Rfam assigns this 77-nucleotide RNA sequence from Terracoccus luteus to the family "ZMP/ZTP riboswitch aptamer (pfl RNA motif)". The family's consensus secondary structure is taken from published work. It scores 44 bits against the family's covariance model. On this family, see Jones and Ferre-D'Amare, Nat Struct Mol Biol 2015: "Recognition of the bacterial alarmone ZMP through long-distance association of two RNA subdomains".
RNA sequence: CUGGCCGCACACGACUGGCGCAGGUGGGUGACCACCGGGGAGUGACGUCGGGAGCAUCGACCGCCUGGGUGCCUCGC
Numbered sequence: 001c002u003g004g005c006c007g008c009a010c011a012c013g014a015c016u017g018g019c020g021c022a023g024g025u026g027g028g029u030g031a032c033c034a035c036c037g038g039g040g041a042g043u044g045a046c047g048u049c050g051g052g053a054g055c056a057u058c059g060a061c062c063g064c065c066u067g068g069g070u071g072c073c074u075c076g077c
Base pairs, nucleotide, nucleotide: 003049004048005047010044011043012042015039016038017065018064019063020062024035025034026033027032054072055071056070057069058068